The record is a 79-nucleotide RNA from Aquisalimonas sp. 2447, which matches "SAH (S-adenosyl-L-homocysteine) riboswitch aptamer" in Rfam.
A reference for the family is Wang et al. (2008), "Riboswitches that sense S-adenosylhomocysteine and activate genes involved in coenzyme recycling", Mol Cell.
Gene Ontology terms of the family: S-adenosylhomocysteine metabolic process and regulation of gene expression.
Lineage of the source: Bacteria > Pseudomonadati > Pseudomonadota > Gammaproteobacteria > Aquisalimonas.
[Rfam]
RNA sequence: CCGGUUGAGGAGCGCUGCAACAGGCCUCGCCUGCCAGGCUCAGCCGGAUGCCGACUCUCACUAACGGCGCUACCAAGGA
Numbered sequence: 001c002c003g004g005u006u007g008a009g010g011a012g013c014g015c016u017g018c019a020a021c022a023g024g025c026c027u028c029g030c031c032u033g034c035c036a037g038g039c040u041c042a043g044c045c046g047g048a049u050g051c052c053g054a055c056u057c058u059c060a061c062u063a064a065c066g067g068c069g070c071u072a073c074c075a076a077g078g079a
Base pairs, nucleotide, nucleotide: 002046003045004044005043006042007041008040021033022032023031024030025029